[Rfam]
RNA: Small nucleolar RNA SNORD87
Organism: Rostratula benghalensis
RNA sequence: GCUGGCAUAAUGAUGAUAACUCUUUGCCGUUUACCCAGCUGAAUUUUGUGAUGAGCAAUGUUUUAUCUGAUGUGCCAGC
Numbered sequence: 001g002c003u004g005g006c007a008u009a010a011u012g013a014u015g016a017u018a019a020c021u022c023u024u025u026g027c028c029g030u031u032u033a034c035c036c037a038g039c040u041g042a043a044u045u046u047u048g049u050g051a052u053g054a055g056c057a058a059u060g061u062u063u064u065a066u067c068u069g070a071u072g073u074g075c076c077a078g079c
Stems, first nucleotide, its partner, number of pairs: 001079007